[Rfam]
RNA sequence: GUUGAAGCUCCAUCUACAAAUGGAUAAUAUUUCCGUCUUAGUGUAUACGAGUUUUUGAAUGUAAAGGAGCAAUAACCAAUUUCCUCUUCUAUCGAGGGGGAUGGUAUUGCUCCUUUAUU
Numbered sequence: 001g002u003u004g005a006a007g008c009u010c011c012a013u014c015u016a017c018a019a020a021u022g023g024a025u026a027a028u029a030u031u032u033c034c035g036u037c038u039u040a041g042u043g044u045a046u047a048c049g050a051g052u053u054u055u056u057g058a059a060u061g062u063a064a065a066g067g068a069g070c071a072a073u074a075a076c077c078a079a080u081u082u083c084c085u086c087u088u089c090u091a092u093c094g095a096g097g098g099g100g101a102u103g104g105u106a107u108u109g110c111u112c113c114u115u116u117a118u119u
Stems, first nucleotide, its partner, number of pairs: 009024005063116012081098003085094001

A member of the RNA family "Plastid-psbA-1 3UTR RNA" from Ampelopsis humulifolia, 119 nucleotides long. The family's consensus secondary structure was predicted with LocARNA. The organism belongs to Ampelopsis, within Eukaryota. It is one of the family's seed sequences. Rfam classes the family as a cis-regulatory element. The family is grouped with related families in Rfam's "Plastid-psbA 3UTR RNA clan". Rfam describes the family as follows. Plastid psbA-1 is a non-coding RNA (ncRNA) present in plastids.